Rfam assigns this 109-nucleotide RNA from Tetracentron sinense to the family "MIR398 microRNA precursor family". The base pairs follow the family's consensus structure, which was predicted with WAR. On this family, see Zeng et al., Nucleic Acids Res 2010: "Conservation and divergence of microRNAs and their functions in Euphorbiaceous plants". Lineage of the source: Eukaryota > Viridiplantae > Embryophyta > Magnoliopsida > Tetracentron.

RNA sequence: GAAAGUCCGGCAGGGGCGACCUGAGAACACAUGAAAUACACAUUAACAAUGCCAUUAAGGGAGAUUCUCAGUCUCUCAUGUGAUCUCAUGUCGCUCCUGUUGGGCUCCU
Numbered sequence: 001g002a003a004a005g006u007c008c009g010g011c012a013g014g015g016g017c018g019a020c021c022u023g024a025g026a027a028c029a030c031a032u033g034a035a036a037u038a039c040a041c042a043u044u045a046a047c048a049a050u051g052c053c054a055u056u057a058a059g060g061g062a063g064a065u066u067c068u069c070a071g072u073c074u075c076u077c078a079u080g081u082g083a084u085c086u087c088a089u090g091u092c093g094c095u096c097c098u099g100u101u102g103g104g105c106u107c108c109u
Stems, first nucleotide, its partner, number of pairs: 007103002011099004016094004023087004028082005